transfer-messenger RNA: a 343-nucleotide RNA sequence from Roseburia sp. CAG:309.
Its Rfam clan is "tRNA clan".
For this family Rfam cites "Phylogenetic analysis of tmRNA secondary structure" (Williams and Bartel, RNA, 1996).
Rfam's curators write: Bacterial tmRNA, also known as 10Sa RNA or SsrA, is named for its dual tRNA and mRNA-like properties. Its role is to liberate the mRNA from a stalled ribosome. To accomplish this part of the tmRNA is used as a reading frame that ends in a translation stop signal. The broken mRNA is replaced in the ribosome by the tmRNA and translation of the tmRNA leads to addition of a proteolysis tag to the incomplete protein enabling recognition by a protease.
RNA sequence: GGGCUUGUACUGGUUUCGACAGGCCGGCUGAAGAUGGAGAAGCUAUCCGUGGACCGUGACCACGUUAAAACAUGGAUUAAAAUUAAACGCUGAAGAUAAUUUAGCAUACGCUGCCUAAUGGCAGCUGUCUGACUUAAGGCACCUACACUUUAAGACCCAGGCAUCAACGAUGUAGGAAACGACAUGCAUUAAGCUUUGCGUGCAUGGGCGUAUCAUGAAGCUACUAAAACCUGAAGGGUGUUCAUUCUCGUCAGGCGGAGGGAAUGUAAAAAAAUGAACUAUGAUAGUAGAAGUACAUGGGAUUCCGGUUUGGACGCGGGUUCGAUUCCCGCCAGGUCCAUGU
Dot-bracket structure: (((((((............((((((((......(((.(....((((((((((.[[[[[.)))))......]]]]]..................................(((((......)))))((((((.(((((((..[[[[[[)))))))...)))))).......]]]]]]......(((((((..[[[[[[..)))))))..........]]]]]].((....((((..(((.[[[[.[[)))..))))....)).........]]...]]]]...)))))......).)))......))))))))...(((((.......))))))))))))....